This 110-nucleotide RNA from Halobacillus salinus belongs to the Rfam family "SAM riboswitch aptamer (S box leader)". Taxonomically the source falls in Halobacillus (Bacteria, Bacillota, Bacilli, Caryophanales). Pairs were carried over by alignment from the consensus structure, which is taken from published work. It scores 86 bits against the family's covariance model. About the family: The SAM riboswitch is found upstream of a number of genes which code for proteins involved in methionine or cysteine biosynthesis in Gram-positive bacteria.

RNA sequence: CUCUUAUCGAGAGCGGCAGAGGGACUAGGCCCUGUGAUGCCCGGCAACCUUCAAGCAGAUGCUUGAAAAGGUGCUAAUUCCUACAGAUCGAACGGUCUGGCAGAUAAGGG
Numbered sequence: 001c002u003c004u005u006a007u008c009g010a011g012a013g014c015g016g017c018a019g020a021g022g023g024a025c026u027a028g029g030c031c032c033u034g035u036g037a038u039g040c041c042c043g044g045c046a047a048c049c050u051u052c053a054a055g056c057a058g059a060u061g062c063u064u065g066a067a068a069a070g071g072u073g074c075u076a077a078u079u080c081c082u083a084c085a086g087a088u089c090g091a092a093c094g095g096u097c098u099g100g101c102a103g104a105u106a107a108g109g110g
Stems, first nucleotide, its partner, number of pairs: 001110008013042001015041003021032003026083004043075004048071002050067004079102001084099006